[Rfam]
Annotation: ASpks TB sRNA: a 69-nucleotide RNA sequence from Streptomyces sp. PBH53. The family has 77 seed sequences and 9,052 matches in Rfam 15.1. By type it is an antisense RNA. NCBI's taxonomy places the organism under Bacteria, Bacillati, Actinomycetes, Kitasatosporales, Streptomyces.
RNA sequence: CUUCAGCGAGCCGAGCCAGACCGGUUCUUCGCGGUCCUGGCCGUAGGUGGCGAGGAGUGCCUGGGCCUC
Numbered sequence: 001c002u003u004c005a006g007c008g009a010g011c012c013g014a015g016c017c018a019g020a021c022c023g024g025u026u027c028u029u030c031g032c033g034g035u036c037c038u039g040g041c042c043g044u045a046g047g048u049g050g051c052g053a054g055g056a057g058u059g060c061c062u063g064g065g066c067c068u069c
Stems, first nucleotide, its partner, number of pairs: 014026004028065003032059002037054002041050003